[Rfam]
RNA sequence: CAGGUGCUGGACCUGCAGCACCACAGACGCGGCUGCCGGGCUGUGACGUCGGGGCCCAGAGGAAGUGGGUAGUUCUACCCUCAGUGCUCAGAACAGUGGGCACUAAGGAUGGUUGGUAGCCUGACAUUC
Numbered sequence: 001c002a003g004g005u006g007c008u009g010g011a012c013c014u015g016c017a018g019c020a021c022c023a024c025a026g027a028c029g030c031g032g033c034u035g036c037c038g039g040g041c042u043g044u045g046a047c048g049u050c051g052g053g054g055c056c057c058a059g060a061g062g063a064a065g066u067g068g069g070u071a072g073u074u075c076u077a078c079c080c081u082c083a084g085u086g087c088u089c090a091g092a093a094c095a096g097u098g099g100g101c102a103c104u105a106a107g108g109a110u111g112g113u114u115g116g117u118a119g120c121c122u123g124a125c126a127u128u129c
Stems, first nucleotide, its partner, number of pairs: 003056003007052004023044004067121002075112003080107002085102006
RNA: Small nucleolar RNA SNORA43